Notes: mir-7563 microRNA precursor family: a 76-nucleotide RNA sequence from Ameiurus melas. A search with the family's covariance model found it, with a score of 83 bits. Its family is annotated with miRNA-mediated post-transcriptional gene silencing and RISC complex in the Gene Ontology. Lineage of the source: Eukaryota > Chordata > Actinopterygii > Neopterygii > Ameiurus.
[Rfam]
RNA sequence: ACCGUGUACUUACUUACUAUAUAGUAGCUGAAAUACAUGUAUCUCGCCUACUAUGUAGAAGGUAAGUGCACUGUUU
Number, nucleotide and partner (000 for none) at each position: 001a074002c073003c000004g071005u070006g069007u068008a067009c066010u065011u064012a063013c062014u061015u060016a000017c058018u057019a056020u055021a054022u053023a052024g051025u050026a049027g048028c000029u046030g045031a044032a000033a042034u041035a040036c000037a000038u000039g000040u035041a034042u033043c000044u031045c030046g029047c000048c027049u026050a025051c024052u023053a022054u021055g020056u019057a018058g017059a000060a015061g014062g013063u012064a011065a010066g009067u008068g007069c006070a005071c004072u000073g002074u001075u000076u000